[Rfam]
A member of the RNA family "c-di-AMP riboswitch aptamer (ydaO/yuaA leader)" from Aeromicrobium sp. Root472D3, 154 nucleotides long. The organism belongs to Aeromicrobium, within Bacteria.
RNA sequence: CGUCGAGUCGUCGCAGCCAUGGGGAAGAUGUCUGGGACGAACCGGGGAACCACGCACGUGGGGUGAAUCGCCGUGCACGCACCUGAGCGGUGCGCACACGGCGUAGGGCAAUCCGAGGCCCGAACCCGUCAGCUCACCCGGUAGACGUCGAGGA
Numbered sequence: 001c002g003u004c005g006a007g008u009c010g011u012c013g014c015a016g017c018c019a020u021g022g023g024g025a026a027g028a029u030g031u032c033u034g035g036g037a038c039g040a041a042c043c044g045g046g047g048a049a050c051c052a053c054g055c056a057c058g059u060g061g062g063g064u065g066a067a068u069c070g071c072c073g074u075g076c077a078c079g080c081a082c083c084u085g086a087g088c089g090g091u092g093c094g095c096a097c098a099c100g101g102c103g104u105a106g107g108g109c110a111a112u113c114c115g116a117g118g119c120c121c122g123a124a125c126c127c128g129u130c131a132g133c134u135c136a137c138c139c140g141g142u143a144g145a146c147g148u149c150g151a152g153g154a
Stems, first nucleotide, its partner, number of pairs: 001147004008040005041142006051060002061127003069103007106121004